[Rfam]
RNA sequence: UUAAACGUAUAAGUAUGUCCUGUGAAAUAUUUAGGACAUACUUAUGCUAAAA
Numbered sequence: 001u002u003a004a005a006c007g008u009a010u011a012a013g014u015a016u017g018u019c020c021u022g023u024g025a026a027a028u029a030u031u032u033a034g035g036a037c038a039u040a041c042u043u044a045u046g047c048u049a050a051a052a
Stems, first nucleotide, its partner, number of pairs: 007047006014040003018036004022031001
Dot-bracket structure: ......((((((.(((.(((((........).)))).))).)))))).....
RNA: mir-1302 microRNA precursor family